[Rfam]
RNA sequence: CGAGUGGAACAUACGACGGCGGGGCGGCUUGACCGCCCUGAGGAAAGUCCGGGCUUCACAGAGGCAUGGCAACUGCUAACGGCAGCCGGGGGUGACCCUAGGGAUAGUGCAACAGAAAUAGACCGCCGCCCCCAACAGGCGGUAAGGAUGGAAAGGCGAGGUAAGAGCUCACCAGCGCACUGGCGACUUUGCGGCUAUGUAAACCCUGUCAGAAGCAACAACCGUAUGGGACAUAUGUGGAAGCCUCGCACGUCCCGGAGUUGGCGUGACGGCCCUUUGGGGCCGCGGAGUUUUGCGGCAACGUAAAACCAAGAUAGAUCGUCGUUUAAUACAGAACCCGGCUUACGGUCCAGUCGUUUU
Numbered sequence: 001c002g003a004g005u006g007g008a009a010c011a012u013a014c015g016a017c018g019g020c021g022g023g024g025c026g027g028c029u030u031g032a033c034c035g036c037c038c039u040g041a042g043g044a045a046a047g048u049c050c051g052g053g054c055u056u057c058a059c060a061g062a063g064g065c066a067u068g069g070c071a072a073c074u075g076c077u078a079a080c081g082g083c084a085g086c087c088g089g090g091g092g093u094g095a096c097c098c099u100a101g102g103g104a105u106a107g108u109g110c111a112a113c114a115g116a117a118a119u120a121g122a123c124c125g126c127c128g129c130c131c132c133c134a135a136c137a138g139g140c141g142g143u144a145a146g147g148a149u150g151g152a153a154a155g156g157c158g159a160g161g162u163a164a165g166a167g168c169u170c171a172c173c174a175g176c177g178c179a180c181u182g183g184c185g186a187c188u189u190u191g192c193g194g195c196u197a198u199g200u201a202a203a204c205c206c207u208g209u210c211a212g213a214a215g216c217a218a219c220a221a222c223c224g225u226a227u228g229g230g231a232c233a234u235a236u237g238u239g240g241a242a243g244c245c246u247c248g249c250a251c252g253u254c255c256c257g258g259a260g261u262u263g264g265c266g267u268g269a270c271g272g273c274c275c276u277u278u279g280g281g282g283c284c285g286c287g288g289a290g291u292u293u294u295g296c297g298g299c300a301a302c303g304u305a306a307a308a309c310c311a312a313g314a315u316a317g318a319u320c321g322u323c324g325u326u327u328a329a330u331a332c333a334g335a336a337c338c339c340g341g342c343u344u345a346c347g348g349u350c351c352a353g354u355c356g357u358u359u360u
Base pairs, nucleotide, nucleotide: 001356002355003354005352006351007350008349010347013325014324015323016322017321018320020040021039022038023037024036025035026034027033045344046343047342049341050340051339052338053337054215055214056213057212067211068210069209070208071207073085074084075083076082087101088099089098090097091096102206103205107204108203109200110199111198123147124146125143126142127141128140129139130138155173156172158170159169160168175195176193177192178191179190182187219281225279226278228276229275230274290309291308292307293306294305295304296303297302